[Rfam]
RNA sequence: AUGAUCCCUGCGGGAGAGACUGGUGGAACGCCAGCGCCGAAGGAGCAACCGCCCCGGAAACUCUCAGGCAAAAGGACCGCAGGAUACGC
Numbered sequence: 001a002u003g004a005u006c007c008c009u010g011c012g013g014g015a016g017a018g019a020c021u022g023g024u025g026g027a028a029c030g031c032c033a034g035c036g037c038c039g040a041a042g043g044a045g046c047a048a049c050c051g052c053c054c055c056g057g058a059a060a061c062u063c064u065c066a067g068g069c070a071a072a073a074g075g076a077c078c079g080c081a082g083g084a085u086a087c088g089c
Base pairs, nucleotide, nucleotide: 007083008082009081010080011079012078013077020034021033022032023031036069037068038067039065040064043063044062045061049057050056

Rfam assigns this 89-nucleotide sequence from Paremcibacter congregatus to the family "Glycine riboswitch aptamer". A search with the family's covariance model found it, with a score of 75 bits. The source organism's lineage runs through Bacteria, Pseudomonadati, Alphaproteobacteria, Emcibacterales and Paremcibacter. Rfam links the family to the GO term glycine biosynthetic process. Rfam's curators write: This family represents the bacterial glycine riboswitch.